[Rfam]
RNA sequence: GGCCCAAAUCUGAAGUAGAGUAGAUCAGAAGGAUCAUCCGAUCCUACUAAACUACUCUACUCCACGUUCGUGCUC
Numbered sequence: 001g002g003c004c005c006a007a008a009u010c011u012g013a014a015g016u017a018g019a020g021u022a023g024a025u026c027a028g029a030a031g032g033a034u035c036a037u038c039c040g041a042u043c044c045u046a047c048u049a050a051a052c053u054a055c056u057c058u059a060c061u062c063c064a065c066g067u068u069c070g071u072g073c074u075c
Stems, first nucleotide, its partner, number of pairs: 001074003005070001007068003011064002014061010025050001027048002030045001032043004
Shown here is a 75-nucleotide RNA sequence from Haemonchus placei, a member of the family "mir-5928 microRNA precursor family". A search with the family's covariance model found it, with a score of 63 bits. The family has 5 seed sequences and 1,672 matches in Rfam 15.1. Its family is annotated with miRNA-mediated post-transcriptional gene silencing and RISC complex in the Gene Ontology.